[Rfam]
RNA: Qrr RNA
Organism: Vibrio sp. 10N.286.49.B3
RNA sequence: UGACCCUUCUUAAGCCGAGGGUCACCUAGCCAACUGACGUUGUUAGUGAACCUUAUUUUUGUUCACACAUAUAUAUAGCCAACUGCACUUUUUUGCGGUUGGUUUUUUUUUA
Numbered sequence: 001u002g003a004c005c006c007u008u009c010u011u012a013a014g015c016c017g018a019g020g021g022u023c024a025c026c027u028a029g030c031c032a033a034c035u036g037a038c039g040u041u042g043u044u045a046g047u048g049a050a051c052c053u054u055a056u057u058u059u060u061g062u063u064c065a066c067a068c069a070u071a072u073a074u075a076u077a078g079c080c081a082a083c084u085g086c087a088c089u090u091u092u093u094u095g096c097g098g099u100u101g102g103u104u105u106u107u108u109u110u111u112a
Stems, first nucleotide, its partner, number of pairs: 001024006041075003046066006079102008